[Rfam]
RNA sequence: UCGACCGAUACCUAUGGCUGGUCACCCAAACCAGUAGGGAUUUAACUUGUCUUCGACAAGCGGCUGUACAGAGUACAUCACCGUAUCCCUCAUAACUAACCUUUGUUUCGCUCUGUAGCACGGUAUCGCUCG
Number, nucleotide and partner (000 for none) at each position: 001u000002c132003g131004a130005c000006c128007g127008a126009u125010a124011c123012c122013u000014a000015u000016g000017g000018c034019u033020g032021g031022u030023c000024a000025c000026c000027c000028a000029a000030a022031c021032c020033a019034g018035u000036a090037g089038g088039g087040a000041u000042u000043u000044a000045a000046c060047u059048u058049g057050u056051c000052u000053u000054c000055g000056a050057c049058a048059a047060g046061c083062g082063g081064c000065u077066g076067u075068a074069c073070a000071g000072a000073g069074u068075a067076c066077a065078u000079c000080a000081c063082c062083g061084u000085a000086u000087c039088c038089c037090u036091c000092a000093u000094a000095a000096c000097u000098a000099a000100c000101c000102u000103u000104u000105g000106u000107u000108u000109c000110g000111c000112u000113c000114u000115g000116u000117a000118g000119c000120a000121c000122g012123g011124u010125a009126u008127c007128g006129c000130u004131c003132g002
Rfam assigns this 132-nucleotide RNA to the family "EFASI RNA".
The family's consensus secondary structure is taken from published work.
Rfam classes the family as a small RNA.